[Rfam]
RNA sequence: GGCCCCGUGGUCUAAUGGCUAGGACAUCACCCUUUCACGGUGGUAACAGGGGUUCGAAUCCCCUCGGGGUCA
Numbered sequence: 001g002g003c004c005c006c007g008u009g010g011u012c013u014a015a016u017g018g019c020u021a022g023g024a025c026a027u028c029a030c031c032c033u034u035u036c037a038c039g040g041u042g043g044u045a046a047c048a049g050g051g052g053u054u055c056g057a058a059u060c061c062c063c064u065c066g067g068g069g070u071c072a
Stems, first nucleotide, its partner, number of pairs: 001071007010025004027043005048064005
RNA: tRNA